[Rfam]
RNA sequence: GAUUUAGACACUCUACGAAAUCGUUGAGCCCUACUGGACAAGCCUUUGGCCAGAAUCCACUUUCAGGGGGUGGAGGGUAGCAUAGGGUAUCACCCAAUUGCCACUCCUUUGAUCCCGCGACACUACUAGAAGCCUACAGUUCGCGGUUGGCCCUACUAAUCGGCAUCGCACCCCGCCGGACCUCCCCCCAUCAACGGCUGUCACAGUCUGGGGCGGGAGUCCGUGGGCGUCUGGAUGUCC
Numbered sequence: 001g002a003u004u005u006a007g008a009c010a011c012u013c014u015a016c017g018a019a020a021u022c023g024u025u026g027a028g029c030c031c032u033a034c035u036g037g038a039c040a041a042g043c044c045u046u047u048g049g050c051c052a053g054a055a056u057c058c059a060c061u062u063u064c065a066g067g068g069g070g071u072g073g074a075g076g077g078u079a080g081c082a083u084a085g086g087g088u089a090u091c092a093c094c095c096a097a098u099u100g101c102c103a104c105u106c107c108u109u110u111g112a113u114c115c116c117g118c119g120a121c122a123c124u125a126c127u128a129g130a131a132g133c134c135u136a137c138a139g140u141u142c143g144c145g146g147u148u149g150g151c152c153c154u155a156c157u158a159a160u161c162g163g164c165a166u167c168g169c170a171c172c173c174c175g176c177c178g179g180a181c182c183u184c185c186c187c188c189c190a191u192c193a194a195c196g197g198c199u200g201u202c203a204c205a206g207u208c209u210g211g212g213g214c215g216g217g218a219g220u221c222c223g224u225g226g227g228c229g230u231c232u233g234g235a236u237g238u239c240c
Base pairs, nucleotide, nucleotide: 001022002021003020004019005015006014007013008012023156024155026153028151029150030149034053035052036051037050039048040047041046056074057073058072059071060070061069062068063067075106076105077104078103080101081100082099085095086094087093088092115146116145117144118143119142120141122140123139124138127136128135129134162239163238164237165236166235167234170230171229172227173226174225175224176223178222179221180220181219183217184216185215186213187212188211189210190209196208197207198206199205200204

Shown here is a 240-nucleotide RNA from Brucella ovis, a member of the family "Brucella BSR0441 sRNA". The sequence is in the family's curated seed alignment. Taxonomically the source falls in Brucella ovis (Bacteria, Pseudomonadota, Hyphomicrobiales, Brucellaceae). From the family's description: Plays important role in Brucella's intracellular survival. It is annotated as a small RNA.